[Rfam]
RNA sequence: GGCAGGGCGCGAAAGAGAUGACCCACCCCAAAAGAAACCCCGGCGACGGGGGAGUAUGAGGGGUGGUGAUCGGCGUCCUGCCGUCCGUGUUGAAACACGG
Number, nucleotide and partner (000 for none) at each position: 001g082002g081003c080004a079005g078006g077007g076008c075009g074010c073011g000012a000013a000014a000015g071016a070017g000018a000019u000020g000021a000022c000023c066024c065025a064026c063027c062028c061029c060030a000031a000032a000033a057034g000035a000036a000037a000038c051039c050040c049041c048042g047043g000044c000045g000046a000047c042048g041049g040050g039051g038052g000053a000054g000055u000056a000057u033058g000059a000060g029061g028062g027063g026064u025065g024066g023067u000068g000069a000070u016071c015072g000073g010074c009075g008076u007077c006078c005079u004080g003081c002082c001083g000084u000085c100086c099087g098088u097089g000090u000091u000092g000093a000094a000095a000096c000097a088098c087099g086100g085
RNA: Archaeal large subunit ribosomal RNA, nucleotides 568 to 667